[Rfam]
RNA sequence: CUUAGGAGUCAAUGAUGUUUUUAUUCCAAAUGUCUGAACCUGUCUGAAGCAUCCCAGUGAUGCAGCCUCUGUAUGGUGCUGAGGCUUUUCUGCCG
Dot-bracket structure: ...(((((((........................................................................)))))))......
Annotation: The record is a 95-nucleotide RNA sequence from Propithecus coquereli, which matches "Small nucleolar RNA SNORD91 family" in Rfam. Pairs were carried over by alignment from the consensus structure.